[Rfam]
RNA sequence: AGUGGAAUUAUGACUCUGAAUAAUGAUAGAAUAUAAAAUGAUUUAUUUUGUCUCUCAUAUAAUUCCUAUAGAAAUAUUGAAGUUCUCUGAAAGAGAGAUGUGAGCUUUUUCUCUCUUUUCGUUCAACUUCUGACAUG
Numbered sequence: 001a002g003u004g005g006a007a008u009u010a011u012g013a014c015u016c017u018g019a020a021u022a023a024u025g026a027u028a029g030a031a032u033a034u035a036a037a038a039u040g041a042u043u044u045a046u047u048u049u050g051u052c053u054c055u056c057a058u059a060u061a062a063u064u065c066c067u068a069u070a071g072a073a074a075u076a077u078u079g080a081a082g083u084u085c086u087c088u089g090a091a092a093g094a095g096a097g098a099u100g101u102g103a104g105c106u107u108u109u110u111c112u113c114u115c116u117u118u119u120c121g122u123u124c125a126a127c128u129u130c131u132g133a134c135a136u137g
Base pairs, nucleotide, nucleotide: 004066005065006064008062009061010060011059012058025052026051027050028049029048030047035044036043037042079130080129081128082127083126087121089119090118091117093115094114095113096112097111098110
Rfam assigns this 137-nucleotide RNA from Lottia gigantea to the family "Small Cajal body specific RNA 3". By type it is a small Cajal body RNA. The source organism's lineage runs through Eukaryota, Bilateria, Spiralia, Gastropoda and Lottia. The base pairs follow the family's consensus structure, which was predicted with RNAalifold.